Fungal signal recognition particle RNA: a 298-nucleotide RNA sequence from Fusarium vanettenii. The literature on the family includes a 2001 paper in J Mol Biol by Batey et al., "Structural and energetic analysis of RNA recognition by a universally conserved protein from the signal recognition particle". The family's RNA type in Rfam is non-coding RNA gene. Rfam 15.1 lists 748 matches to the family in 741 species. Pairs were carried over by alignment from the consensus structure, which is taken from published work. Clan: SRP clan. Its family is annotated with SRP-dependent cotranslational protein targeting to membrane, signal sequence recognition, signal recognition particle, endoplasmic reticulum targeting and signal recognition particle, plasma membrane targeting in the Gene Ontology.
[Rfam]
RNA sequence: GACUGUAAUGGUCCAACGGCGAAGACGUUCAAACACGCUCAUCUUCCCAUCCCAAUUCCACUGUUCUUCGGAAUAGUGGCCCUCUGCCGCGCCCCGUCCGAACGCCGCGGUGGCCGCCCACUCGUGCAGGAAACUCACGAUGCUGGUAAACCCCUUGGCGGUCCUGAGCGCUGGAGAUGACCCUUGAGGGAGGCUUCACUCUGCAGAGAUCUCUCCCCCGUCGCGUGGCGGGUGGGAAUACGCUUGGUGGAAGGGUUUGGGUUGGAUGAGGAUGAGAUGGAAUAUUCAACGCUUUCUU
Numbered sequence: 001g002a003c004u005g006u007a008a009u010g011g012u013c014c015a016a017c018g019g020c021g022a023a024g025a026c027g028u029u030c031a032a033a034c035a036c037g038c039u040c041a042u043c044u045u046c047c048c049a050u051c052c053c054a055a056u057u058c059c060a061c062u063g064u065u066c067u068u069c070g071g072a073a074u075a076g077u078g079g080c081c082c083u084c085u086g087c088c089g090c091g092c093c094c095c096g097u098c099c100g101a102a103c104g105c106c107g108c109g110g111u112g113g114c115c116g117c118c119c120a121c122u123c124g125u126g127c128a129g130g131a132a133a134c135u136c137a138c139g140a141u142g143c144u145g146g147u148a149a150a151c152c153c154c155u156u157g158g159c160g161g162u163c164c165u166g167a168g169c170g171c172u173g174g175a176g177a178u179g180a181c182c183c184u185u186g187a188g189g190g191a192g193g194c195u196u197c198a199c200u201c202u203g204c205a206g207a208g209a210u211c212u213c214u215c216c217c218c219c220g221u222c223g224c225g226u227g228g229c230g231g232g233u234g235g236g237a238a239u240a241c242g243c244u245u246g247g248u249g250g251a252a253g254g255g256u257u258u259g260g261g262u263u264g265g266a267u268g269a270g271g272a273u274g275a276g277a278u279g280g281a282a283u284a285u286u287c288a289a290c291g292c293u294u295u296c297u298u
Stems, first nucleotide, its partner, number of pairs: 001013003018293004024287001027283004032278001034276001036274001039271002044268001047265003051261005060077007083252001085249003089243003093236008102226004107221004112151001116147003119142002122140005128135002164168001173216005183208003190201003